Rfam assigns this 89-nucleotide sequence from Chiloscyllium punctatum to the family "mir-15 microRNA precursor family".
This family represents the related mir-15a and mir-15b sequences. In humans miR-15a and miR-16 are clustered within 0.5 kb at 13q14.
The base pairs follow the family's consensus structure, which was predicted with RNAalifold.
[Rfam]
RNA sequence: GUCAGCAGUGCCUUAGCAGCACGUAAAUAUUGGAGUUAAACUCCUGUGAAUGUCCCCAAUAUUGAUUGUGCUGCUGGAGCAAGGCUGAC
Numbered sequence: 001g002u003c004a005g006c007a008g009u010g011c012c013u014u015a016g017c018a019g020c021a022c023g024u025a026a027a028u029a030u031u032g033g034a035g036u037u038a039a040a041c042u043c044c045u046g047u048g049a050a051u052g053u054c055c056c057c058a059a060u061a062u063u064g065a066u067u068g069u070g071c072u073g074c075u076g077g078a079g080c081a082a083g084g085c086u087g088a089c
Base pairs, nucleotide, nucleotide: 001089002088003087004086005085006084013077014076015075016074017073018072019071020070021069022068023067024065026063027062028061029060030059031058032057033056035054

NCBI's taxonomy places the organism under Eukaryota, Opisthokonta, Bilateria, Orectolobiformes, Chiloscyllium. Gene Ontology terms of the family: miRNA-mediated post-transcriptional gene silencing and RISC complex.